[Rfam]
RNA sequence: CAAUGUAGAAAGAAAAAAGAAGCUCCGUUUCAGCGGAGCUUCCCACGUAGAGCCGUUUAGACGGUAGCAAAAUUAAAACGAUCGAAUA
Number, nucleotide and partner (000 for none) at each position: 001c000002a000003a000004u000005g000006u000007a000008g000009a000010a000011a000012g000013a000014a000015a000016a000017a000018a000019g000020a000021a000022g000023c000024u037025c036026c035027g034028u000029u000030u000031c000032a000033g000034c027035g026036g025037a024038g000039c000040u000041u000042c000043c000044c000045a000046c000047g000048u000049a000050g000051a000052g065053c064054c063055g062056u061057u000058u000059a000060g000061a056062c055063g054064g053065u052066a000067g000068c000069a000070a000071a000072a000073u000074u000075a000076a000077a000078a000079c000080g000081a000082u000083c000084g000085a000086a000087u000088a000
RNA: RNA anti-toxin A